[Rfam]
RNA sequence: GCAUGUAUUCAUCUCAAUCCACAUGUAUUGAAGUGGAUUGGAGUGGAAUUAAAUUAAAUUCCAUUCCAUUCUACUCUAAUAUAUGUGGAUUGAAGUGAAUACACAU
Numbered sequence: 001g002c003a004u005g006u007a008u009u010c011a012u013c014u015c016a017a018u019c020c021a022c023a024u025g026u027a028u029u030g031a032a033g034u035g036g037a038u039u040g041g042a043g044u045g046g047a048a049u050u051a052a053a054u055u056a057a058a059u060u061c062c063a064u065u066c067c068a069u070u071c072u073a074c075u076c077u078a079a080u081a082u083a084u085g086u087g088g089a090u091u092g093a094a095g096u097g098a099a100u101a102c103a104c105a106u
Stems, first nucleotide, its partner, number of pairs: 004103009014093017033074005039068003043064003
About this RNA: The family of this 106-nucleotide RNA sequence from Miscanthus lutarioriparius is "MIR5565 microRNA precursor family". The family's consensus secondary structure was predicted with RNAalifold. Rfam 15.1 lists 3,346 matches to the family in 5 species. It scores 85 bits against the family's covariance model. The organism belongs to Miscanthus, within Eukaryota.